The family of this 73-nucleotide sequence from Phainopepla nitens is "Small nucleolar RNA SNORD19". Its family is annotated with nucleolus and RNA processing in the Gene Ontology. NCBI's taxonomy places the organism under Eukaryota, Craniata, Vertebrata, Dipnotetrapodomorpha, Phainopepla. The pairing is the family consensus, mapped onto this sequence. By type it is a C/D-box small nucleolar RNA. On this family, see Huttenhofer et al., EMBO J 2001: "RNomics: an experimental approach that identifies 201 candidates for novel, small, non-messenger RNAs in mouse".
RNA sequence: GAAAAAUGAUGAUACUUUCUGUGUCCUAUGGUUACACUGAAGACUCAGAUCCAACACUGAUUUCACUCUAGUU
Number, nucleotide and partner (000 for none) at each position: 001g064002a063003a062004a061005a000006a000007u000008g000009a000010u000011g000012a000013u000014a000015c000016u000017u000018u000019c000020u000021g000022u000023g000024u000025c000026c000027u000028a000029u000030g000031g000032u000033u000034a000035c000036a000037c000038u000039g000040a000041a000042g000043a000044c000045u000046c000047a000048g000049a000050u000051c000052c000053a000054a000055c000056a000057c000058u000059g000060a000061u004062u003063u002064c001065a000066c000067u000068c000069u000070a000071g000072u000073u000